Rfam assigns this 176-nucleotide RNA sequence from Oryza glumipatula to the family "MIR807 microRNA precursor family". The base pairs follow the family's consensus structure, which was predicted with WAR. Rfam links the family to the GO terms miRNA-mediated post-transcriptional gene silencing and RISC complex. A reference for the family is Luo et al. (2006), "Rice embryogenic calli express a unique set of microRNAs, suggesting regulatory roles of microRNAs in plant post-embryogenic development", FEBS Lett. The match comes from Rfam's covariance-model search (139 bits).
[Rfam]
RNA sequence: GGUUGUUCCAUCGAUGAAUGGAUUCACCCGUGAGAUGACGUGGUUGUUUCAUCUAGGAUGAGGACGUGGCAUCAUAUUAGUUUCGUGCGAUGGCUGGUAAUAGGAUGCUAUGUCCCCGUCCUAGGUGAAACAGUCACAUCAUCUCGCGGGUGAAUCUAUACAUCGAUAGUGUAGUU
Numbered sequence: 001g002g003u004u005g006u007u008c009c010a011u012c013g014a015u016g017a018a019u020g021g022a023u024u025c026a027c028c029c030g031u032g033a034g035a036u037g038a039c040g041u042g043g044u045u046g047u048u049u050c051a052u053c054u055a056g057g058a059u060g061a062g063g064a065c066g067u068g069g070c071a072u073c074a075u076a077u078u079a080g081u082u083u084c085g086u087g088c089g090a091u092g093g094c095u096g097g098u099a100a101u102a103g104g105a106u107g108c109u110a111u112g113u114c115c116c117c118g119u120c121c122u123a124g125g126u127g128a129a130a131c132a133g134u135c136a137c138a139u140c141a142u143c144u145c146g147c148g149g150g151u152g153a154a155u156c157u158a159u160a161c162a163u164c165g166a167u168a169g170u171g172u173a174g175u176u
Stems, first nucleotide, its partner, number of pairs: 001176006010167006018159002021156008030147004035142004041136008051126002054123002057120002063114003069108005075102005086097001